[Rfam]
RNA sequence: UUCUUACCAUGGGUACCCUGCAAGCACUUCACGAGGCAUUAUUUGAAAUGCCAAUGUGAAGUGUUUGGGGGAACUCUUGGUGGCAC
Numbered sequence: 001u002u003c004u005u006a007c008c009a010u011g012g013g014u015a016c017c018c019u020g021c022a023a024g025c026a027c028u029u030c031a032c033g034a035g036g037c038a039u040u041a042u043u044u045g046a047a048a049u050g051c052c053a054a055u056g057u058g059a060a061g062u063g064u065u066u067g068g069g070g071g072a073a074c075u076c077u078u079g080g081u082g083g084c085a086c
Stems, first nucleotide, its partner, number of pairs: 005082005011076004016071004022066012036052001

The record is an 86-nucleotide RNA sequence from Aegilops tauschii, which matches "mir-395 microRNA precursor family" in Rfam. For this family Rfam cites "Computational Identification of Plant MicroRNAs and Their Targets, Including a Stress-Induced miRNA" (Jones-Rhoades and Bartel, Mol Cell, 2004).